[Rfam]
RNA sequence: GCCGAGCUGAGUAGCAUCAGCUUGUGACUCAAGCGAGGGCAAUAAGGUGAUGGAACUUGUCUCAAUUCCACAGGGCAGGGCUGCAGGCUGCGGUUUAUUGGCUUGCCCAUUCCAAGCUAAGAGUUGGGCAGGGUGGGUUAGGCGAAGGCCUGGCUUAAACAGUCCCUAGAGAGGAGGGCACCGCGUCAGGCUGGCUUCACAGAGCAGCGAAUGCCUCCCGCUCUCAGCAGUGGAAGGAUAACAAGCUGUGGCAUCCUCCGUCCAUUGUCGCCUUGUGGUCUGAGCUCAAUCGGACCAUCACCUUU
Numbered sequence: 001g002c003c004g005a006g007c008u009g010a011g012u013a014g015c016a017u018c019a020g021c022u023u024g025u026g027a028c029u030c031a032a033g034c035g036a037g038g039g040c041a042a043u044a045a046g047g048u049g050a051u052g053g054a055a056c057u058u059g060u061c062u063c064a065a066u067u068c069c070a071c072a073g074g075g076c077a078g079g080g081c082u083g084c085a086g087g088c089u090g091c092g093g094u095u096u097a098u099u100g101g102c103u104u105g106c107c108c109a110u111u112c113c114a115a116g117c118u119a120a121g122a123g124u125u126g127g128g129c130a131g132g133g134u135g136g137g138u139u140a141g142g143c144g145a146a147g148g149c150c151u152g153g154c155u156u157a158a159a160c161a162g163u164c165c166c167u168a169g170a171g172a173g174g175a176g177g178g179c180a181c182c183g184c185g186u187c188a189g190g191c192u193g194g195c196u197u198c199a200c201a202g203a204g205c206a207g208c209g210a211a212u213g214c215c216u217c218c219c220g221c222u223c224u225c226a227g228c229a230g231u232g233g234a235a236g237g238a239u240a241a242c243a244a245g246c247u248g249u250g251g252c253a254u255c256c257u258c259c260g261u262c263c264a265u266u267g268u269c270g271c272c273u274u275g276u277g278g279u280c281u282g283a284g285c286u287c288a289a290u291c292g293g294a295c296c297a298u299c300a301c302c303u304u305u
Stems, first nucleotide, its partner, number of pairs: 001040003004023007028037003044304010056292001058288002061284004068278009078263004083258001086255001089253002099248007107237002110235005116228003120224005126165004131160001134157010166171001173218005184209003191202003
A member of the RNA family "Plant signal recognition particle RNA" from Carnegiea gigantea, 305 nucleotides long. Pairs were carried over by alignment from the consensus structure, which is taken from published work. It scores 230 bits against the family's covariance model. By type it is a non-coding RNA gene.